[Rfam]
RNA sequence: UCGUCAAGGUUAAAGGGAGAAGAGAGAGAGUACAGCCUUAAUUAAGCUCGAUCGAUCUGUCUUGUAUCAAGGCUGUACCCUCUCUCUUCUUCUCUUAGCUUCUUGAUGC
Numbered sequence: 001u002c003g004u005c006a007a008g009g010u011u012a013a014a015g016g017g018a019g020a021a022g023a024g025a026g027a028g029a030g031u032a033c034a035g036c037c038u039u040a041a042u043u044a045a046g047c048u049c050g051a052u053c054g055a056u057c058u059g060u061c062u063u064g065u066a067u068c069a070a071g072g073c074u075g076u077a078c079c080c081u082c083u084c085u086c087u088u089c090u091u092c093u094c095u096u097a098g099c100u101u102c103u104u105g106a107u108g109c
Stems, first nucleotide, its partner, number of pairs: 005105002009099001012096002015093014030078009